[Rfam]
RNA sequence: CAUCCUUAAUGAAGGUACGUGCAUAAACUAUGGACUAGUGGCACGUGUUUGAUAUCACGCAGG
Numbered sequence: 001c002a003u004c005c006u007u008a009a010u011g012a013a014g015g016u017a018c019g020u021g022c023a024u025a026a027a028c029u030a031u032g033g034a035c036u037a038g039u040g041g042c043a044c045g046u047g048u049u050u051g052a053u054a055u056c057a058c059g060c061a062g063g
Stems, first nucleotide, its partner, number of pairs: 001063001003061001005059001014049009028038003
Dot-bracket structure: (.(.(........(((((((((.....(((.....)))..))))))))).........).).)
The family of this 63-nucleotide sequence from Gadus morhua is "Selenocysteine insertion sequence 1". Gene Ontology term of the family: selenocysteine incorporation.